[Rfam]
RNA sequence: GGAGGCAGCGGUUCAUCGAUCUGUUCCCUGAAAGCUGAAUAUAUAUGCAAAAAUACAGCAAAAGGAACCGAUCGAUAAACCUCUGCAUCCAG
Numbered sequence: 001g002g003a004g005g006c007a008g009c010g011g012u013u014c015a016u017c018g019a020u021c022u023g024u025u026c027c028c029u030g031a032a033a034g035c036u037g038a039a040u041a042u043a044u045a046u047g048c049a050a051a052a053a054u055a056c057a058g059c060a061a062a063a064g065g066a067a068c069c070g071a072u073c074g075a076u077a078a079a080c081c082u083c084u085g086c087a088u089c090c091a092g
Stems, first nucleotide, its partner, number of pairs: 001090003006085003010081004015076007024067003
The record is a 92-nucleotide sequence from Solanum tuberosum, which matches "MIR162_1 microRNA precursor family" in Rfam.
Gene Ontology terms of the family: miRNA-mediated post-transcriptional gene silencing and RISC complex.
The family has 36 seed sequences and 270 matches in Rfam 15.1.
NCBI's taxonomy places the organism under Eukaryota, Streptophyta, Embryophyta, Tracheophyta, Solanum.
Its Rfam clan is "MIR167 microRNA precursor clan".